A member of the RNA family "small Cajal body-specific RNA 17" from Prolemur simus, 133 nucleotides long.

[Rfam]
RNA sequence: CCCUCGGGUCCUCGAUUCGGCCUUCGGAUGAGCCGCAAUAUUUUCCUUAUAUGAUCGGGUCCCGUUGCUGCUUGCGCGGAGCCUGAGAGGAUUAUGAAACUGUGGCAGGCGAGGCGGGGCCGGGCAUCCGGGG
Number, nucleotide and partner (000 for none) at each position: 001c133002c132003c131004u000005c130006g129007g128008g127009u126010c000011c124012u123013c122014g000015a000016u000017u000018c000019g000020g120021c119022c118023u117024u116025c000026g000027g000028a000029u000030g000031a000032g000033c000034c000035g000036c000037a000038a000039u000040a000041u000042u000043u000044u000045c000046c000047u000048u000049a000050u000051a000052u000053g000054a000055u086056c085057g084058g083059g082060u081061c000062c079063c078064g000065u000066u000067g075068c074069u000070g000071c000072u000073u000074g068075c067076g000077c000078g063079g062080a000081g060082c059083c058084u057085g056086a055087g000088a000089g000090g000091a000092u000093u000094a000095u000096g000097a000098a000099a000100c000101u000102g000103u000104g000105g000106c000107a000108g000109g000110c000111g000112a000113g000114g000115c000116g024117g023118g022119g021120c020121c000122g013123g012124g011125c000126a009127u008128c007129c006130g005131g003132g002133g001
The family's consensus secondary structure is taken from published work. Rfam links the family to the GO terms RNA processing, nucleolus and Cajal body. Rfam's curators write: scaRNAs are a specific class of small nuclear RNAs which localise to the Cajal bodies and guide the modification of RNA polymerase II transcribed spliceosomal RNAs U1, U2, U4, U5 and U12. The complete human U12-22/U4-8 scaRNA is composed of two tandem C/D box domains (termed U12-22 and U4-8). By type it is a small Cajal body RNA.